[Rfam]
RNA sequence: AUAUUUUGUAGAGGCGCGGUUGCCAAGAGUAGAUUAUAGGAUUUUUACAAGAAAAGAUGAUUAUAGUCAAAAGGGGUAAUCGCCGAAGAUUAAAUAGCUUGUACUAUUUAUUUCUGGUUGUCUGGUUAAUAGCUAUACAACUGUCAUCCUUUAUUAUACAAUAAGGAUGGAGUGCUACAUAUAAU
Numbered sequence: 001a002u003a004u005u006u007u008g009u010a011g012a013g014g015c016g017c018g019g020u021u022g023c024c025a026a027g028a029g030u031a032g033a034u035u036a037u038a039g040g041a042u043u044u045u046u047a048c049a050a051g052a053a054a055a056g057a058u059g060a061u062u063a064u065a066g067u068c069a070a071a072a073g074g075g076g077u078a079a080u081c082g083c084c085g086a087a088g089a090u091u092a093a094a095u096a097g098c099u100u101g102u103a104c105u106a107u108u109u110a111u112u113u114c115u116g117g118u119u120g121u122c123u124g125g126u127u128a129a130u131a132g133c134u135a136u137a138c139a140a141c142u143g144u145c146a147u148c149c150u151u152u153a154u155u156a157u158a159c160a161a162u163a164a165g166g167a168u169g170g171a172g173u174g175c176u177a178c179a180u181a182u183a184a185u
Base pairs, nucleotide, nucleotide: 007179008178009177010176011175016083017082018081019080020079021078022077023076024075032068033067034066035065036064037063038062039061087115088114089113091110092109093108094107095106096105097104116142117141118140119139120138121137123135124134125133126132144170145169146168147167148166149165150164
This 185-nucleotide RNA sequence from Cellulosilyticum lentocellum belongs to the Rfam family "Lysine riboswitch aptamer". The source organism's lineage runs through Bacteria, Bacillati, Lachnospirales, Cellulosilyticum and Cellulosilyticum lentocellum. Its family is annotated with lysine biosynthetic process in the Gene Ontology.